RNA: A. fumigatus sRNA Afu_309
Organism: Didymella heteroderae
RNA sequence: CUCUCACUACCAGCCUGUGCCAGUUUUCCCGUCCACCUCUCGGGGUGUGUUCGGUCGAGAGCUGGCAGUUCGUUCGUGACCAUGGAGCCGUCUUGAUCAGUGGACGUCAAUAUCUGAACGACAGGCUGCAGAGCAAGUCGGCGCGUUGCUGGAAGCCUGAGUUCGCCGGAAGGUUUGAGCUCGGUGAAAGGUGCGUGCCAGGCAGACUGAUUCCUGUUCCCUUUUGCUAGACCGUCGGUCUAUGACGCUUGGGACAAACCCAGUUGGCUACAAAC
Numbered sequence: 001c002u003c004u005c006a007c008u009a010c011c012a013g014c015c016u017g018u019g020c021c022a023g024u025u026u027u028c029c030c031g032u033c034c035a036c037c038u039c040u041c042g043g044g045g046u047g048u049g050u051u052c053g054g055u056c057g058a059g060a061g062c063u064g065g066c067a068g069u070u071c072g073u074u075c076g077u078g079a080c081c082a083u084g085g086a087g088c089c090g091u092c093u094u095g096a097u098c099a100g101u102g103g104a105c106g107u108c109a110a111u112a113u114c115u116g117a118a119c120g121a122c123a124g125g126c127u128g129c130a131g132a133g134c135a136a137g138u139c140g141g142c143g144c145g146u147u148g149c150u151g152g153a154a155g156c157c158u159g160a161g162u163u164c165g166c167c168g169g170a171a172g173g174u175u176u177g178a179g180c181u182c183g184g185u186g187a188a189a190g191g192u193g194c195g196u197g198c199c200a201g202g203c204a205g206a207c208u209g210a211u212u213c214c215u216g217u218u219c220c221c222u223u224u225u226g227c228u229a230g231a232c233c234g235u236c237g238g239u240c241u242a243u244g245a246c247g248c249u250u251g252g253g254a255c256a257a258a259c260c261c262a263g264u265u266g267g268c269u270a271c272a273a274a275c
Stems, first nucleotide, its partner, number of pairs: 011128008019066005025060004029054003033049001034047002036044001038043001075120003080116001083109003087105001089103001141196006157183001159182006166173002202268002205265005218254004226248002230240004